[Rfam]
RNA sequence: GGGGGGAGGCCAGAUCCUGGGCUGUGUCCCCGGUGCCCUGUGCUCCGAGGCCUGCGCUGUUGGAUUCAUGCUCCUGGCCGGGCAGCCCCCU
Numbered sequence: 001g002g003g004g005g006g007a008g009g010c011c012a013g014a015u016c017c018u019g020g021g022c023u024g025u026g027u028c029c030c031c032g033g034u035g036c037c038c039u040g041u042g043c044u045c046c047g048a049g050g051c052c053u054g055c056g057c058u059g060u061u062g063g064a065u066u067c068a069u070g071c072u073c074c075u076g077g078c079c080g081g082g083c084a085g086c087c088c089c090c091u
Stems, first nucleotide, its partner, number of pairs: 001091006009083002011080001013078001016077002019074003023070004027064002030062001031059006040052001042051003
Rfam assigns this 91-nucleotide RNA from Canis lupus to the family "mir-8799 microRNA precursor family". Lineage of the source: Eukaryota > Gnathostomata > Laurasiatheria > Canidae > Canis lupus. Clan: mir-8791 microRNA precursor clan. The match comes from Rfam's covariance-model search (93 bits). Its family is annotated with miRNA-mediated post-transcriptional gene silencing and RISC complex in the Gene Ontology.